[Rfam]
RNA: FMN riboswitch aptamer (RFN element)
RNA sequence: AAUAUACUUCAGGGUCAGGUGAAAAUCCUAACCGGCGGUGAAACAUACUUGAUAUGGUAAGCCCGCGACCUGCGAUAGCAGCUGAUCUGGUUUGAAUCCAGAGCCGACCGUAAAGUCGGGUAUAAAGAAGUUAAAA
Numbered sequence: 001a002a003u004a005u006a007c008u009u010c011a012g013g014g015u016c017a018g019g020u021g022a023a024a025a026u027c028c029u030a031a032c033c034g035g036c037g038g039u040g041a042a043a044c045a046u047a048c049u050u051g052a053u054a055u056g057g058u059a060a061g062c063c064c065g066c067g068a069c070c071u072g073c074g075a076u077a078g079c080a081g082c083u084g085a086u087c088u089g090g091u092u093u094g095a096a097u098c099c100a101g102a103g104c105c106g107a108c109c110g111u112a113a114a115g116u117c118g119g120g121u122a123u124a125a126a127g128a129a130g131u132u133a134a135a136a
Stems, first nucleotide, its partner, number of pairs: 003134001006131005017029003031116002033106002035066004061104002070081002086102005108119003